The record is a 79-nucleotide RNA sequence from Thiovibrio frasassiensis, which matches "c-di-GMP-I-GGC riboswitch aptamer" in Rfam. The base pairs follow the family's consensus structure, which is taken from published work.
[Rfam]
RNA sequence: UUUGAAAAAGGCAAACCCGGAGUAAUCCGGGGACGCAAAGCCAACGGGUCCGCCAGUGCGGAUGGCCGGGUUGCCGAUA
Number, nucleotide and partner (000 for none) at each position: 001u079002u000003u076004g075005a000006a000007a000008a000009a000010g000011g036012c035013a000014a000015a000016c031017c030018c029019g028020g027021a026022g000023u000024a000025a000026u021027c020028c019029g018030g017031g016032g000033a000034c065035g012036c011037a000038a000039a072040g071041c070042c069043a000044a000045c068046g067047g066048g063049u062050c061051c000052g000053c000054c000055a000056g000057u000058g000059c000060g000061g050062a049063u048064g000065g034066c047067c046068g045069g042070g041071u040072u039073g000074c000075c004076g003077a000078u000079a001